RNA sequence: CACCAACGCUGCGUUUCUUUGCUCACAAACAGACGGCUUUGAGCUUGCUCAGCUUGUCCAAUCAUGCAAAUGAGAAAUUCGGAGUAAUCUUCACCCUUCUUGCCAACUCUACCUUCUCGGGGGUCGGAGCUCUGGCAGCACUGCCUGUGAGGGCCUGGCGUGAACUUCACGUCUGCAUUUGGCAUCAGAAAACUCAGGGUCCUUGAGGGUUAAGCAGUGGCCUUCGGGUUGUUGUGGAGCGUGAUGGGAUACCCUAUGGGAGCCGGUGCGGAGAUUGUGUGCUUGCGAGCGACACUUUAGUGCAAUACGCAGCGUACUUGAUCUUAAGUAGGUGAAAGCCGAAAAAGAGAUGGUAUCAUUCGAUUCCGAUUACUCAGGUG
Numbered sequence: 001c002a003c004c005a006a007c008g009c010u011g012c013g014u015u016u017c018u019u020u021g022c023u024c025a026c027a028a029a030c031a032g033a034c035g036g037c038u039u040u041g042a043g044c045u046u047g048c049u050c051a052g053c054u055u056g057u058c059c060a061a062u063c064a065u066g067c068a069a070a071u072g073a074g075a076a077a078u079u080c081g082g083a084g085u086a087a088u089c090u091u092c093a094c095c096c097u098u099c100u101u102g103c104c105a106a107c108u109c110u111a112c113c114u115u116c117u118c119g120g121g122g123g124u125c126g127g128a129g130c131u132c133u134g135g136c137a138g139c140a141c142u143g144c145c146u147g148u149g150a151g152g153g154c155c156u157g158g159c160g161u162g163a164a165c166u167u168c169a170c171g172u173c174u175g176c177a178u179u180u181g182g183c184a185u186c187a188g189a190a191a192a193c194u195c196a197g198g199g200u201c202c203u204u205g206a207g208g209g210u211u212a213a214g215c216a217g218u219g220g221c222c223u224u225c226g227g228g229u230u231g232u233u234g235u236g237g238a239g240c241g242u243g244a245u246g247g248g249a250u251a252c253c254c255u256a257u258g259g260g261a262g263c264c265g266g267u268g269c270g271g272a273g274a275u276u277g278u279g280u281g282c283u284u285g286c287g288a289g290c291g292a293c294a295c296u297u298u299a300g301u302g303c304a305a306u307a308c309g310c311a312g313c314g315u316a317c318u319u320g321a322u323c324u325u326a327a328g329u330a331g332g333u334g335a336a337a338g339c340c341g342a343a344a345a346a347g348a349g350a351u352g353g354u355a356u357c358a359u360u361c362g363a364u365u366c367c368g369a370u371u372a373c374u375c376a377g378g379u380g
Stems, first nucleotide, its partner, number of pairs: 001380004018070004032058005037052001080368005089273004143154004157173005175269005181263001197255003314356005
Notes: Shown here is a 380-nucleotide sequence from Delitschia confertaspora, a member of the family "Nuclear RNase P".